[Rfam]
U11 spliceosomal RNA: a 137-nucleotide RNA sequence from Xenopus laevis. Rfam classes the family as a spliceosomal small nuclear RNA.

RNA sequence: AAAAAGGGCUUGUGCUGUGUAUAGCACAUCGUGGUUCUCUCUUGUAGGGGAUCGCGGUGCGGAAUCGAUAUCAAGAGAUUUCGAAAGCGUAAUUUUUGAUAACUGGGCUGCUCGUGGUCGUUAUCCUGGGCGCCCAA
Numbered sequence: 001a002a003a004a005a006g007g008g009c010u011u012g013u014g015c016u017g018u019g020u021a022u023a024g025c026a027c028a029u030c031g032u033g034g035u036u037c038u039c040u041c042u043u044g045u046a047g048g049g050g051a052u053c054g055c056g057g058u059g060c061g062g063a064a065u066c067g068a069u070a071u072c073a074a075g076a077g078a079u080u081u082c083g084a085a086a087g088c089g090u091a092a093u094u095u096u097u098g099a100u101a102a103c104u105g106g107g108c109u110g111c112u113c114g115u116g117g118u119c120g121u122u123a124u125c126c127u128g129g130g131c132g133c134c135c136a137a
Stems, first nucleotide, its partner, number of pairs: 008088004013026005027059014060083007105135004110131005116126002
Taxonomically the source falls in Xenopus (Eukaryota, Bilateria, Craniata, Teleostomi).